Overview: This 93-nucleotide RNA from Vulpes vulpes belongs to the Rfam family "mir-8799 microRNA precursor family". The match comes from Rfam's covariance-model search (50 bits). Clan: mir-8791 microRNA precursor clan.
RNA sequence: GAGGGAGCACCAGAUCCUUGGCUGUGUCCCCUGGCCCCCUGCGCUCCACGGCCUGCGUUGCUUGAAUCACAGUCCUGGGCCGUGCAGUCCCCU
Numbered sequence: 001g002a003g004g005g006a007g008c009a010c011c012a013g014a015u016c017c018u019u020g021g022c023u024g025u026g027u028c029c030c031c032u033g034g035c036c037c038c039c040u041g042c043g044c045u046c047c048a049c050g051g052c053c054u055g056c057g058u059u060g061c062u063u064g065a066a067u068c069a070c071a072g073u074c075c076u077g078g079g080c081c082g083u084g085c086a087g088u089c090c091c092c093u
Stems, first nucleotide, its partner, number of pairs: 001093001003091004010084001011082001013080001016078002020074002023071004027065002032060004037055001041053001043052003